Rfam assigns this 112-nucleotide RNA sequence from Niallia circulans to the family "PyrR binding site".
Pairs were carried over by alignment from the consensus structure, which is taken from published work.
The match comes from Rfam's covariance-model search (66 bits).
Rfam 15.1 lists 1,498 matches to the family in 930 species.
The organism belongs to Niallia, within Bacteria.
[Rfam]
RNA sequence: GAUCCCUUUUAAAAGCAGUCCUGUGAGGCUGAAAAGGGGAGUUUUUUCCUAAGGUUUCUUUAAACCUGCUUAAAACCCCUUUUUUGCUGUGCAGAAAAGGGGUUUUAUUUGU
Numbered sequence: 001g002a003u004c005c006c007u008u009u010u011a012a013a014a015g016c017a018g019u020c021c022u023g024u025g026a027g028g029c030u031g032a033a034a035a036g037g038g039g040a041g042u043u044u045u046u047u048c049c050u051a052a053g054g055u056u057u058c059u060u061u062a063a064a065c066c067u068g069c070u071u072a073a074a075a076c077c078c079c080u081u082u083u084u085u086g087c088u089g090u091g092c093a094g095a096a097a098a099g100g101g102g103u104u105u106u107a108u109u110u111g112u
Stems, first nucleotide, its partner, number of pairs: 003039007016031005052067006071107010082097004